[Rfam]
Rfam assigns this 113-nucleotide RNA from Stackebrandtia endophytica to the family "TPP riboswitch aptamer (THI element)". Gene Ontology term of the family: thiamine pyrophosphate binding.
RNA sequence: CCACCCGCCCACGGGAGUCCGGUGCACCGGACUGAGAGGGGAGCUAGGUAGCUCCCGACCGUCGAACCUGAUCCAGAUCAUGCUGGCGCAGGGAGAAGGAGCCAUGGUUGACC
Numbered sequence: 001c002c003a004c005c006c007g008c009c010c011a012c013g014g015g016a017g018u019c020c021g022g023u024g025c026a027c028c029g030g031a032c033u034g035a036g037a038g039g040g041g042a043g044c045u046a047g048g049u050a051g052c053u054c055c056c057g058a059c060c061g062u063c064g065a066a067c068c069u070g071a072u073c074c075a076g077a078u079c080a081u082g083c084u085g086g087c088g089c090a091g092g093g094a095g096a097a098g099g100a101g102c103c104a105u106g107g108u109u110g111a112c113c
Stems, first nucleotide, its partner, number of pairs: 006101001008099002011062004017032005039056007067092004073086004